Description: A member of the RNA family "TPP riboswitch aptamer (THI element)" from Terasakiispira papahanaumokuakeensis, 96 nucleotides long. Vitamin B(1) in its active form thiamin pyrophosphate (TPP) is an essential coenzyme that is synthesised by coupling of pyrimidine and thiazole moieties in bacteria. The source organism's lineage runs through Bacteria, Pseudomonadati, Gammaproteobacteria, Oceanospirillales and Terasakiispira.
[Rfam]
RNA sequence: UUCAUCUUGACGGGGUGCCGUAACCAAUCGGCUGAGAUGAUACCCGCAAUACCUGAACCGGUUCGCACCGGCGUAGGGAUCGAGAUGCAUACUACA
Numbered sequence: 001u002u003c004a005u006c007u008u009g010a011c012g013g014g015g016u017g018c019c020g021u022a023a024c025c026a027a028u029c030g031g032c033u034g035a036g037a038u039g040a041u042a043c044c045c046g047c048a049a050u051a052c053c054u055g056a057a058c059c060g061g062u063u064c065g066c067a068c069c070g071g072c073g074u075a076g077g078g079a080u081c082g083a084g085a086u087g088c089a090u091a092c093u094a095c096a
Base pairs, nucleotide, nucleotide: 006084007083008082009081010080011046012045013044014043016040017032018031019030020029052077053076054075055074058071059070060069061068